[Rfam]
Rfam assigns this 63-nucleotide RNA from Python bivittatus to the family "Small nucleolar RNA SNORD42".
The match comes from Rfam's covariance-model search (54 bits).
The family's RNA type in Rfam is C/D-box small nucleolar RNA.
Pairs were carried over by alignment from the consensus structure, which was predicted with PFOLD.
A reference for the family is Galardi et al. (2002), "Purified box C/D snoRNPs are able to reproduce site-specific 2'-O-methylation of target RNA in vitro", Mol Cell Biol.
snoRNA U42 is found in intron 3 of the ribosomal protein L23a (RPL23a) gene in humans and is also present in mice.
RNA sequence: GUGCAGAUGAUGGAAACUUUUCGACUGAGCUGAGUGAUGUUUUCAAAGGAACCACUGAUGCAU
Dot-bracket structure: (((((.....................................................)))))